[Rfam]
The family of this 73-nucleotide RNA from Crocodylus porosus is "Mammalian CPEB3 ribozyme".
RNA sequence: UCACAAAUUCAAGGCCACAGCAGAAGUGCUCAUGGCACAGCCUGUCAGAUUCAAUGAAUCUGAGAAUUCUGCU
Numbered sequence: 001u002c003a004c005a006a007a008u009u010c011a012a013g014g015c016c017a018c019a020g021c022a023g024a025a026g027u028g029c030u031c032a033u034g035g036c037a038c039a040g041c042c043u044g045u046c047a048g049a050u051u052c053a054a055u056g057a058a059u060c061u062g063a064g065a066a067u068u069c070u071g072c073u
Stems, first nucleotide, its partner, number of pairs: 013042003019073007026038003046062007
Record summary
Rfam's curators write: The mammalian CPEB3 ribozyme is a self cleaving RNA located in the second intron of the CPEB3 gene which belongs to a family of genes regulating messenger RNA polyadenylation. Pairs were carried over by alignment from the consensus structure, which is taken from published work.